Background
The record is a 69-nucleotide sequence from Pieris macdunnoughi, which matches "mir-124 microRNA precursor family" in Rfam. The source organism's lineage runs through Eukaryota, Metazoa, Dicondylia, Amphiesmenoptera and Pieris.
RNA sequence: ACAUCCUCGCGUUCACUGCUGGCCGUUAUGUUUUCUAGUUCAUAAGGCACGCGGUGAAUGCCAAGAGUG
Numbered sequence: 001a002c003a004u005c006c007u008c009g010c011g012u013u014c015a016c017u018g019c020u021g022g023c024c025g026u027u028a029u030g031u032u033u034u035c036u037a038g039u040u041c042a043u044a045a046g047g048c049a050c051g052c053g054g055u056g057a058a059u060g061c062c063a064a065g066a067g068u069g
Stems, first nucleotide, its partner, number of pairs: 004066002009061008018052002023047002026045005

The match comes from Rfam's covariance-model search (52 bits). Its family is annotated with miRNA-mediated post-transcriptional gene silencing and RISC complex in the Gene Ontology.